[Rfam]
RNA sequence: AAAAGAACAGGGCAAACCAACUCGAAAGAUUGGGACGCAAAGUCACGGGUCUAAAGUUAUUAAACAAUGACAGCCGGACUGCCAAA
Numbered sequence: 001a002a003a004a005g006a007a008c009a010g011g012g013c014a015a016a017c018c019a020a021c022u023c024g025a026a027a028g029a030u031u032g033g034g035a036c037g038c039a040a041a042g043u044c045a046c047g048g049g050u051c052u053a054a055a056g057u058u059a060u061u062a063a064a065c066a067a068u069g070a071c072a073g074c075c076g077g078a079c080u081g082c083c084a085a086a
Stems, first nucleotide, its partner, number of pairs: 012038002017033004022029002041080004046076003049071003056065003

The record is an 86-nucleotide sequence from Niallia taxi, which matches "c-di-GMP-I riboswitch aptamer" in Rfam. The source organism's lineage runs through Bacteria, Bacillota, Bacilli, Caryophanales and Niallia. The base pairs follow the family's consensus structure, which is taken from published work. It scores 81 bits against the family's covariance model.